[Rfam]
Small nucleolar RNA SNORA44: a 116-nucleotide RNA from Rattus norvegicus. For this family Rfam cites "RNomics: an experimental approach that identifies 201 candidates for novel, small, non-messenger RNAs in mouse" (Huttenhofer et al., EMBO J, 2001). The family is grouped with related families in Rfam's "SNORA44 clan". The family's RNA type in Rfam is H/ACA-box small nucleolar RNA. Taxonomically the source falls in Rattus (Eukaryota, Deuterostomia, Sarcopterygii, Theria). From the family's description: ACA44 is a member of the H/ACA class of snoRNA that guide the sites of modification of uridines to pseudouridines.

RNA sequence: UAGGAGAUUUUUAAAGUCAAGUUAAAGUUAGUUGGUUUUCUGCCAGAGUAACGGAGAGACUUUGACAGCCCAGGUUAUCACAGUGCCUGCUGUUGCCACUCAGCUCUCCUAUAUGU
Numbered sequence: 001u002a003g004g005a006g007a008u009u010u011u012u013a014a015a016g017u018c019a020a021g022u023u024a025a026a027g028u029u030a031g032u033u034g035g036u037u038u039u040c041u042g043c044c045a046g047a048g049u050a051a052c053g054g055a056g057a058g059a060c061u062u063u064g065a066c067a068g069c070c071c072a073g074g075u076u077a078u079c080a081c082a083g084u085g086c087c088u089g090c091u092g093u094u095g096c097c098a099c100u101c102a103g104c105u106c107u108c109c110u111a112u113a114u115g116u
Base pairs, nucleotide, nucleotide: 002033003032007029009027010026011025012024013023053109054108055107056106057105058104068096069095071089072088073087074086